[Rfam]
The family of this 33-nucleotide sequence is "S4-Flavobacteria ribosomal protein leader". Clan: Ribosomal Protein S4 Leader clan. The sequence is in the family's curated seed alignment. By type it is a cis-regulatory leader.
RNA sequence: UGUUAUCAAAGGUCCAGACCUUAAUUCAAAAUA
Numbered sequence: 001u002g003u004u005a006u007c008a009a010a011g012g013u014c015c016a017g018a019c020c021u022u023a024a025u026u027c028a029a030a031a032u033a
Base pairs, nucleotide, nucleotide: 001033002032003031004030006028009022010021011020012019